[Rfam]
Description: msiK RNA: a 57-nucleotide RNA from Knoellia koreensis. Rfam classes the family as a cis-regulatory element. A search with the family's covariance model found it, with a score of 58 bits.
RNA sequence: GGGCACCACCUUUACAACGGAUCGUCCGGCACGUUCCUGCCGGUGAAGGAAGAAGGC
Numbered sequence: 001g002g003g004c005a006c007c008a009c010c011u012u013u014a015c016a017a018c019g020g021a022u023c024g025u026c027c028g029g030c031a032c033g034u035u036c037c038u039g040c041c042g043g044u045g046a047a048g049g050a051a052g053a054a055g056g057c
Base pairs, nucleotide, nucleotide: 009049010048011047012046013045014044026043027042028041029040030039031038